[Rfam]
A member of the RNA family "RtT RNA" from Chimaeribacter arupi, 127 nucleotides long. A search with the family's covariance model found it, with a score of 109 bits. Rfam links the family to the GO term cellular response to amino acid starvation. Rfam 15.1 lists 651 matches to the family in 204 species. A reference for the family is Bosl and Kersten (1991), "A novel RNA product of the tyrT operon of Escherichia coli", Nucleic Acids Res. Rfam describes the family as follows. This family represents a bacterial cis-regulatory element known as RtT RNA. The exact function of RtT is unknown although it is thought that it may be involved in changing the cellular response in relation to amino acid starvation. Taxonomically the source falls in Chimaeribacter (Bacteria, Pseudomonadati, Gammaproteobacteria, Enterobacterales).
RNA sequence: AUGAUGCAGUUUUGGGGAAGGGUGAGAACCUUCGACAAGGUUCGGGCGAGCGAAAGCGAGCAACGUUGCGCAGCAACGGCCCGAAGGGUGAGGAACGAAGUGACGAAUAAUCCUUCCCCCACCACCA
Number, nucleotide and partner (000 for none) at each position: 001a000002u000003g000004a000005u000006g000007c000008a000009g000010u000011u000012u000013u000014g000015g118016g117017g116018a115019a114020g113021g112022g000023u110024g000025a000026g000027a000028a000029c000030c000031u000032u000033c090034g089035a000036c087037a000038a000039g000040g000041u085042u084043c083044g082045g000046g000047c058048g057049a000050g000051c000052g000053a000054a000055a000056g000057c048058g047059a000060g000061c000062a000063a000064c078065g077066u076067u075068g074069c073070g000071c000072a000073g069074c068075a067076a066077c065078g064079g000080c000081c000082c044083g043084a042085a041086g000087g036088g000089u034090g033091a000092g000093g000094a000095a000096c000097g000098a000099a000100g000101u000102g000103a000104c000105g000106a000107a000108u000109a000110a023111u000112c021113c020114u019115u018116c017117c016118c015119c000120c000121a000122c000123c000124a000125c000126c000127a000